[Rfam]
c-di-GMP-I riboswitch aptamer: a 90-nucleotide RNA from Paenibacillus swuensis. It scores 62 bits against the family's covariance model. The family's consensus secondary structure is taken from published work.
RNA sequence: AUAACCGUAGGGCAAACCUGACUGAAAAGCAGGGACGCAAAGUCACAGGUCUUAAAGUUGUAUCCUGACUAAGACAGCUGGAUUGCUUGG
Numbered sequence: 001a002u003a004a005c006c007g008u009a010g011g012g013c014a015a016a017c018c019u020g021a022c023u024g025a026a027a028a029g030c031a032g033g034g035a036c037g038c039a040a041a042g043u044c045a046c047a048g049g050u051c052u053u054a055a056a057g058u059u060g061u062a063u064c065c066u067g068a069c070u071a072a073g074a075c076a077g078c079u080g081g082a083u084u085g086c087u088u089g090g
Stems, first nucleotide, its partner, number of pairs: 012038002017033004022029002041084004046080003049075003057069004